The record is a 269-nucleotide RNA from Mesorhizobium sp. Root172, which matches "Mesorhizobail RNA 15" in Rfam. The match comes from Rfam's covariance-model search (149 bits). The source organism's lineage runs through Bacteria, Pseudomonadati, Hyphomicrobiales, Phyllobacteriaceae and Mesorhizobium. It is annotated as a small RNA.

RNA sequence: CGGCGCGUUUCAUGGUUUCACGGAAAGGGGCCAUGGCGGCCCCUUUUUCGUGGUGGCCUGUAGUGGCCACUUGCUGAUGGAUUCAGCCGCAGCGCAACAUCCUUUGCUUGAAGCAAUUCCGGGCCAUACCGCCUGAAAACCGUGUCGGCGGCAAUCUCGCACUUGCACAAAUUUAUAUUGCACUGCAGUAUGGACGGGGGCGGGAAUGCGAGCCGGGUUCGGAAUGCGUACCGCCGUGCCCUUUCGCAUGCCAAUGCGAAAGGAUCGGC
Numbered sequence: 001c002g003g004c005g006c007g008u009u010u011c012a013u014g015g016u017u018u019c020a021c022g023g024a025a026a027g028g029g030g031c032c033a034u035g036g037c038g039g040c041c042c043c044u045u046u047u048u049c050g051u052g053g054u055g056g057c058c059u060g061u062a063g064u065g066g067c068c069a070c071u072u073g074c075u076g077a078u079g080g081a082u083u084c085a086g087c088c089g090c091a092g093c094g095c096a097a098c099a100u101c102c103u104u105u106g107c108u109u110g111a112a113g114c115a116a117u118u119c120c121g122g123g124c125c126a127u128a129c130c131g132c133c134u135g136a137a138a139a140c141c142g143u144g145u146c147g148g149c150g151g152c153a154a155u156c157u158c159g160c161a162c163u164u165g166c167a168c169a170a171a172u173u174u175a176u177a178u179u180g181c182a183c184u185g186c187a188g189u190a191u192g193g194a195c196g197g198g199g200g201c202g203g204g205a206a207u208g209c210g211a212g213c214c215g216g217g218u219u220c221g222g223a224a225u226g227c228g229u230a231c232c233g234c235c236g237u238g239c240c241c242u243u244u245c246g247c248a249u250g251c252c253a254a255u256g257c258g259a260a261a262g263g264a265u266c267g268g269c
Base pairs, nucleotide, nucleotide: 001063004060005059007057008056011052012051013050015049024046025045026044027043028042029041030040031039032038065098074092075091076090079088080087100230105115106114107113108112117139118138121133122132123130141228142227143226144225145223146222150218152216156212157211158210159209160208161207162204163203164202165201166200168198172194173193174192175191176190177189178188179187180186181185233269234268235267236266239263240262243261244259245258246257247256248255249254
Rfam's curators write: Existence predicted via genome wide comparisons with 4 related strains. Analysed further by deep sequencing and Northern blot under various stress conditions. On this family, see Fuli et al., Front Microbiol 2017: "A Genome-Wide Prediction and Identification of Intergenic Small RNAs by Comparative Analysis in Mesorhizobium huakuii 7653R".